[Rfam]
RNA sequence: UUUUGGGUAAGUUAGGUACUUGGACCCCCUCAACCCUAGGGUUGAGGGGGUCCAAGUACCUAACUUACCCAAAA
Numbered sequence: 001u002u003u004u005g006g007g008u009a010a011g012u013u014a015g016g017u018a019c020u021u022g023g024a025c026c027c028c029c030u031c032a033a034c035c036c037u038a039g040g041g042u043u044g045a046g047g048g049g050g051u052c053c054a055a056g057u058a059c060c061u062a063a064c065u066u067a068c069c070c071a072a073a074a
Stems, first nucleotide, its partner, number of pairs: 001074005006068001008067004013062007022053014